Background:
Shown here is a 65-nucleotide sequence from Pan troglodytes, a member of the family "mir-297 microRNA precursor family". The sequence is in the family's curated seed alignment.
RNA sequence: UGUAUGUAUGUGUGCAUGUGCAUGUAUGUGUGUAUACAUACAUAUGUAUUAUGUACUCAUAUAUC
Numbered sequence: 001u002g003u004a005u006g007u008a009u010g011u012g013u014g015c016a017u018g019u020g021c022a023u024g025u026a027u028g029u030g031u032g033u034a035u036a037c038a039u040a041c042a043u044a045u046g047u048a049u050u051a052u053g054u055a056c057u058c059a060u061a062u063a064u065c
Stems, first nucleotide, its partner, number of pairs: 005063006012056002016054005024049009
Dot-bracket structure: ....((((((.((..(((((...(((((((((........)))))))))))))))).))))))..

The family's consensus secondary structure was predicted with RNAalifold.